[Rfam]
RNA: U5 spliceosomal RNA
Organism: Prolemur simus
Nucleotides: 117
Base pairs, nucleotide, nucleotide: 003078004077005076006075010067011066012065013064014063015062016061017060018059028054029053030052031051032050033049034048035047097117099116100115102113103112104111
Number, partner (000 for none) and nucleotide at each position: 001000a002000c003078a004077c005076u006075c007000u008000g009000c010067u011066u012065u013064c014063u015062c016061u017060u018059c019000a020000a021000a022000a023000g024000g025000a026000a027000u028054a029053a030052a031051u032050c033049u034048u035047u036000c037000u038000c039000c040000u041000u042000u043000u044000a045000c046000u047035a048034a049033a050032g051031a052030u053029u054028u055000c056000c057000a058000c059018g060017g061016a062015g063014a064013g065012g066011a067010a068000c069000a070000g071000u072000u073000a074000c075006g076005a077004g078003u079000u080000g081000g082000u083000a084000a085000c086000c087000a088000a089000a090000u091000u092000u093000u094000u095000u096000g097117a098000g099116g100115u101000a102113u103112u104111g105000c106000u107000c108000a109000g110000g111104c112103a113102a114000g115100g116099c117097u